Nucleotides: 266
Stems, first nucleotide, its partner, number of pairs: 001266004034247002037244001039242001042228005049221001060214004064128007086113007094104001136192003140188003152179006160170001
Number, partner (000 for none) and nucleotide at each position: 001266g002265g003264u004263c005000a006000g007000u008000g009000a010000u011000g012000a013000a014000c015000a016000g017000u018000a019000a020000a021000a022000g023000g024000u025000c026000u027000g028000a029000u030000u031000a032000a033000c034247c035246a036000c037244a038000a039242u040000c041000c042228u043227c044226u045225u046224c047000u048000g049221c050000u051000g052000c053000c054000c055000u056000c057000u058000g059000g060214c061213u062212c063211c064128c065127g066126g067125c068124a069123g070122c071000c072000c073000c074000u075000a076000a077000a078000c079000c080000c081000u082000g083000c084000c085000c086113c087112c088111a089110u090109c091108a092107u093000g094104c095000u096000c097000u098000a099000g100000u101000g102000g103000u104094g105000c106000a107092g108091u109090g110089a111088u112087g113086g114000u115000c116000u117000c118000a119000g120000u121000g122070g123069c124068u125067g126066c127065u128064g129000a130000c131000a132000c133000a134000c135000a136192g137191g138190a139000a140188g141187u142186g143000g144000c145000a146000u147000c148000a149000c150000a151000u152179u153178g154177a155176g156175u157174c158000u159000u160170u161000a162000c163000a164000g165000a166000g167000a168000u169000g170160g171000u172000u173000u174157g175156a176155c177154u178153c179152a180000g181000u182000g183000a184000u185000u186142c187141a188140c189000a190138u191137c192136c193000a194000a195000c196000a197000g198000a199000a200000c201000c202000a203000u204000u205000c206000a207000g208000u209000a210000u211063g212062g213061a214060g215000c216000g217000u218000c219000a220000g221049g222000g223000u224046g225045a226044g227043g228042a229000a230000g231000a232000g233000g234000a235000g236000g237000g238000a239000g240000c241000u242039g243000a244037u245000c246035u247034g248000a249000a250000g251000u252000u253000u254000u255000c256000a257000a258000c259000c260000u261000g262000a263004g264003a265002c266001c